[Rfam]
RNA sequence: AGAGCGUUGGCGUCUCGGAAGAUGCGGCCGCCCUGCGAGCCUUCACGGAGGCUAUGACCAGGUACUCGGCCCCACCCGGAGACGAACCACAC
Numbered sequence: 001a002g003a004g005c006g007u008u009g010g011c012g013u014c015u016c017g018g019a020a021g022a023u024g025c026g027g028c029c030g031c032c033c034u035g036c037g038a039g040c041c042u043u044c045a046c047g048g049a050g051g052c053u054a055u056g057a058c059c060a061g062g063u064a065c066u067c068g069g070c071c072c073c074a075c076c077c078g079g080a081g082a083c084g085a086a087c088c089a090c091a092c
Stems, first nucleotide, its partner, number of pairs: 006087003010083001013080003017076002021072001026071003030066001032062004038053006
Dot-bracket structure: .....(((.(..(((.((..(....(((.(.((((..((((((....)))))).....))))...)..))))..)).)))..).))).....
This 92-nucleotide RNA belongs to the Rfam family "Hepatitis C virus stem-loop SL8670". The family's RNA type in Rfam is cis-regulatory element. A reference for the family is Mauger et al. (2015), "Functionally conserved architecture of hepatitis C virus RNA genomes", Proc Natl Acad Sci U S A.